[Rfam]
RNA: permuted transfer-messenger RNA
Organism: Rhodobacteraceae bacterium PD-2
RNA sequence: GGGCAUAAACGCGCGUGAAAUAAGCGGAUCGGACCCGGGGGCGGUACCCGGCGGCUCCACCAAACAUCCCUUGUUGGGGGAUCAUGGGGCCGAAAUAGGAUCGACGAACGUGUAAAGACGUUGCUUUGUCCCGGUGAGAUACCACCGUUAUCGGUUCACAAAGUACAAUUGCCAACAACAAUCGUGCUCCGGUUGCCCUCGCUGCGUAA
Numbered sequence: 001g002g003g004c005a006u007a008a009a010c011g012c013g014c015g016u017g018a019a020a021u022a023a024g025c026g027g028a029u030c031g032g033a034c035c036c037g038g039g040g041g042c043g044g045u046a047c048c049c050g051g052c053g054g055c056u057c058c059a060c061c062a063a064a065c066a067u068c069c070c071u072u073g074u075u076g077g078g079g080g081a082u083c084a085u086g087g088g089g090c091c092g093a094a095a096u097a098g099g100a101u102c103g104a105c106g107a108a109c110g111u112g113u114a115a116a117g118a119c120g121u122u123g124c125u126u127u128g129u130c131c132c133g134g135u136g137a138g139a140u141a142c143c144a145c146c147g148u149u150a151u152c153g154g155u156u157c158a159c160a161a162a163g164u165a166c167a168a169u170u171g172c173c174a175a176c177a178a179c180a181a182u183c184g185u186g187c188u189c190c191g192g193u194u195g196c197c198c199u200c201g202c203u204g205c206g207u208a209a
Base pairs, nucleotide, nucleotide: 001131002130003129004128005127013121014120015119016118025110026109029107030106031105035051036050037049038048039047052092053091054090055089056088057087058086132147133146134145135144